[Rfam]
RNA sequence: AGUUAACUGAGUAUAUGGGGAUGAAUAUCUGACAUUCAACGACAAGAAUGCGAGGAAAAAAAAAUGGGGGAAAAAAUCCCCCAUUUCUCCACUAAAC
Numbered sequence: 001a002g003u004u005a006a007c008u009g010a011g012u013a014u015a016u017g018g019g020g021a022u023g024a025a026u027a028u029c030u031g032a033c034a035u036u037c038a039a040c041g042a043c044a045a046g047a048a049u050g051c052g053a054g055g056a057a058a059a060a061a062a063a064a065u066g067g068g069g070g071a072a073a074a075a076a077u078c079c080c081c082c083a084u085u086u087c088u089c090c091a092c093u094a095a096a097c
Base pairs, nucleotide, nucleotide: 008038010036011035012034016032018030019029020028062086063085064084065083066082067081068080069079070078071077
RNA: sraA